[Rfam]
RNA sequence: AAUGGCAGUGAUGAUUCUCAAAAUCUUAUUCUACACACUGAUCAUUAAUCGUGUUGACUAUAAACUCCGCUUAUUAUUUGAUGCCAUU
Numbered sequence: 001a002a003u004g005g006c007a008g009u010g011a012u013g014a015u016u017c018u019c020a021a022a023a024u025c026u027u028a029u030u031c032u033a034c035a036c037a038c039u040g041a042u043c044a045u046u047a048a049u050c051g052u053g054u055u056g057a058c059u060a061u062a063a064a065c066u067c068c069g070c071u072u073a074u075u076a077u078u079u080g081a082u083g084c085c086a087u088u
Base pairs, nucleotide, nucleotide: 003086004085005084006083007082
RNA: Small nucleolar RNA R16